RNA: Bacterial large signal recognition particle RNA
Organism: Tumebacillus flagellatus
RNA sequence: UCGUGCUGGACGGGGAGUUAGCGGUGCCCUGUAACCCGCAAUCCGCUGCAGCGGGGUCGAAGCUCGGUCGAGGGUUCGUUUCUUUGAGGACGGCUGUCGGGCCCGGUGGUGUUGAGGAUCGGGUCCUGCGCAACAGAACCUCCUGAAUCGUGUCAGGUCCGGAAGGAAGCAGCACUAAGGGAAUCGUUUUGUGUGCCGCAGGGUUGCCUGGUCGGAGCCGCCGGCGACGGUACGCUCGGAGUUCGGAUUCGGAGCCGAUCGCACGA
Numbered sequence: 001u002c003g004u005g006c007u008g009g010a011c012g013g014g015g016a017g018u019u020a021g022c023g024g025u026g027c028c029c030u031g032u033a034a035c036c037c038g039c040a041a042u043c044c045g046c047u048g049c050a051g052c053g054g055g056g057u058c059g060a061a062g063c064u065c066g067g068u069c070g071a072g073g074g075u076u077c078g079u080u081u082c083u084u085u086g087a088g089g090a091c092g093g094c095u096g097u098c099g100g101g102c103c104c105g106g107u108g109g110u111g112u113u114g115a116g117g118a119u120c121g122g123g124u125c126c127u128g129c130g131c132a133a134c135a136g137a138a139c140c141u142c143c144u145g146a147a148u149c150g151u152g153u154c155a156g157g158u159c160c161g162g163a164a165g166g167a168a169g170c171a172g173c174a175c176u177a178a179g180g181g182a183a184u185c186g187u188u189u190u191g192u193g194u195g196c197c198g199c200a201g202g203g204u205u206g207c208c209u210g211g212u213c214g215g216a217g218c219c220g221c222c223g224g225c226g227a228c229g230g231u232a233c234g235c236u237c238g239g240a241g242u243u244c245g246g247a248u249u250c251g252g253a254g255c256c257g258a259u260c261g262c263a264c265g266a
Stems, first nucleotide, its partner, number of pairs: 001266006009058003012030004017025003035055005064258005073250002076247002082241007093233001095229005105222002108219003117213008125202006131193002134191005141182004150175004158167003